[Rfam]
RNA: Glycine riboswitch aptamer
RNA sequence: GGACGAAUCUCUGGAGAGACUCCCUCCUAUUGCAUAGCAAAAAGGAGGAAACAGAGCACCGAAGGAGCAAAUCUGCUAUUACAGCGGAUAAUCUCUCAGGUAAAAGGACAGAGACAAGCAA
Dot-bracket structure: .......((((((......(((...............................))).(((((..(((....(..............).....))))).))).......)))))).......
Numbered sequence: 001g002g003a004c005g006a007a008u009c010u011c012u013g014g015a016g017a018g019a020c021u022c023c024c025u026c027c028u029a030u031u032g033c034a035u036a037g038c039a040a041a042a043a044g045g046a047g048g049a050a051a052c053a054g055a056g057c058a059c060c061g062a063a064g065g066a067g068c069a070a071a072u073c074u075g076c077u078a079u080u081a082c083a084g085c086g087g088a089u090a091a092u093c094u095c096u097c098a099g100g101u102a103a104a105a106g107g108a109c110a111g112a113g114a115c116a117a118g119c120a121a
Stems, first nucleotide, its partner, number of pairs: 008114006020056003058101003061097002065095003072087001